The family of this 352-nucleotide RNA sequence from Dorea longicatena is "Bacterial RNase P class A".
Rfam's curators put it in the seed alignment.
Rfam classes the family as a ribozyme.

RNA sequence: CAAGUAAGACAGGUAAUCGCAGCUGCAGAUGCCGAAAGGCAGCAGGUGAGGAAAGUCCGGGCUUCACAGGGCAGGAUGCCGGAUAACGUCCGGUGGAGGCGACUCCAAGGAUAGUGCAACAGAAAUAUACCGCCAGGAUAUAAUUCUGGUAAGGGUGGAAGGGCAGUGUAAGAGACUACCGCCUUGCUGGUAACAGCAGGGGCAUAUGUAAACCCCAUUCGAAGCAAGACCGGAUAAAGACAAUGUGGCGGCCCGUCACGUCUUAGGUAGGUUGCUUGAACCCAUUGGUAACGAUGGGUCUAGAAAGAUGAUUACCCAACGACAUAACCCGGCUUAUCGUUUUGCUUGCAAU
Numbered sequence: 001c002a003a004g005u006a007a008g009a010c011a012g013g014u015a016a017u018c019g020c021a022g023c024u025g026c027a028g029a030u031g032c033c034g035a036a037a038g039g040c041a042g043c044a045g046g047u048g049a050g051g052a053a054a055g056u057c058c059g060g061g062c063u064u065c066a067c068a069g070g071g072c073a074g075g076a077u078g079c080c081g082g083a084u085a086a087c088g089u090c091c092g093g094u095g096g097a098g099g100c101g102a103c104u105c106c107a108a109g110g111a112u113a114g115u116g117c118a119a120c121a122g123a124a125a126u127a128u129a130c131c132g133c134c135a136g137g138a139u140a141u142a143a144u145u146c147u148g149g150u151a152a153g154g155g156u157g158g159a160a161g162g163g164c165a166g167u168g169u170a171a172g173a174g175a176c177u178a179c180c181g182c183c184u185u186g187c188u189g190g191u192a193a194c195a196g197c198a199g200g201g202g203c204a205u206a207u208g209u210a211a212a213c214c215c216c217a218u219u220c221g222a223a224g225c226a227a228g229a230c231c232g233g234a235u236a237a238a239g240a241c242a243a244u245g246u247g248g249c250g251g252c253c254c255g256u257c258a259c260g261u262c263u264u265a266g267g268u269a270g271g272u273u274g275c276u277u278g279a280a281c282c283c284a285u286u287g288g289u290a291a292c293g294a295u296g297g298g299u300c301u302a303g304a305a306a307g308a309u310g311a312u313u314a315c316c317c318a319a320c321g322a323c324a325u326a327a328c329c330c331g332g333c334u335u336a337u338c339g340u341u342u343u344g345c346u347u348g349c350a351a352u
Stems, first nucleotide, its partner, number of pairs: 001348010011337001012316007020048002023045004028040001053335003057332005062224004069254004074220005079093005094108001095106004109215002114213002116209003130154002132150008162180002165177003181203001182201008228273004238263004245259005280299008